A member of the RNA family "MIR408 microRNA precursor family" from Morus notabilis, 121 nucleotides long. A reference for the family is Mica et al. (2009), "High throughput approaches reveal splicing of primary microRNA transcripts and tissue specific expression of mature microRNAs in Vitis vinifera", BMC Genomics. Pairs were carried over by alignment from the consensus structure, which was predicted with WAR. The match comes from Rfam's covariance-model search (99 bits). The family has 8 seed sequences and 299 matches in Rfam 15.1.

RNA sequence: GGUCAAAAAGCAGAAUAAGGCAGGGAACGGGCAGAGCAUGGAUGGAGCCUUCAACACAAGGAAUGCUGUUGUGGCUCUACUCAUGCACUGCCUCUUCCCUGGCUGUGCCUCUCUUCUUUUU
Numbered sequence: 001g002g003u004c005a006a007a008a009a010g011c012a013g014a015a016u017a018a019g020g021c022a023g024g025g026a027a028c029g030g031g032c033a034g035a036g037c038a039u040g041g042a043u044g045g046a047g048c049c050u051u052c053a054a055c056a057c058a059a060g061g062a063a064u065g066c067u068g069u070u071g072u073g074g075c076u077c078u079a080c081u082c083a084u085g086c087a088c089u090g091c092c093u094c095u096u097c098c099c100u101g102g103c104u105g106u107g108c109c110u111c112u113c114u115u116c117u118u119u120u121u
Stems, first nucleotide, its partner, number of pairs: 018104002021101007029093006036086006045077002